[Rfam]
RNA sequence: UUCCACAGCUACUGGUCAGCAGCUGCUUUCAUCUGUAGCAGUUGUUGUAUUCCACUGUGGAAGAGAAACUGUUACAUUGUUAAAUCUCCUCUUUCUGAUACAAAAGGAAGUGGGUUCCUUGUGUGACAGACAUUU
Numbered sequence: 001u002u003c004c005a006c007a008g009c010u011a012c013u014g015g016u017c018a019g020c021a022g023c024u025g026c027u028u029u030c031a032u033c034u035g036u037a038g039c040a041g042u043u044g045u046u047g048u049a050u051u052c053c054a055c056u057g058u059g060g061a062a063g064a065g066a067a068a069c070u071g072u073u074a075c076a077u078u079g080u081u082a083a084a085u086c087u088c089c090u091c092u093u094u095c096u097g098a099u100a101c102a103a104a105a106g107g108a109a110g111u112g113g114g115u116u117c118c119u120u121g122u123g124u125g126a127c128a129g130a131c132a133u134u135u
Stems, first nucleotide, its partner, number of pairs: 003060004017047009074124004087114003091110006
Small nucleolar RNA SNORA41: a 135-nucleotide sequence from Sarcophilus harrisii. The base pairs follow the family's consensus structure, which was predicted with PFOLD. By type it is an H/ACA-box small nucleolar RNA. For this family Rfam cites "RNomics: an experimental approach that identifies 201 candidates for novel, small, non-messenger RNAs in mouse" (Huttenhofer et al., EMBO J, 2001). About the family: ACA41 is a member of the H/ACA class of snoRNA that guide the sites of modification of uridines to pseudouridines.